[Rfam]
The record is a 74-nucleotide RNA sequence from Acholeplasma laidlawii, which matches "tRNA" in Rfam. The source organism's lineage runs through Bacteria, Bacillati, Mycoplasmatota, Acholeplasmatales and Acholeplasma.
RNA sequence: GGCUCUGUAGCUCAGUCGGUAGAGCAGUGGCCUGAAGAGCCUCGUGUCAGCCGGUUCGAUUCCGCUUGGAGCCA
Numbered sequence: 001g002g003c004u005c006u007g008u009a010g011c012u013c014a015g016u017c018g019g020u021a022g023a024g025c026a027g028u029g030g031c032c033u034g035a036a037g038a039g040c041c042u043c044g045u046g047u048c049a050g051c052c053g054g055u056u057c058g059a060u061u062c063c064g065c066u067u068g069g070a071g072c073c074a
Stems, first nucleotide, its partner, number of pairs: 001073007010025004027043001029041003049066003053063002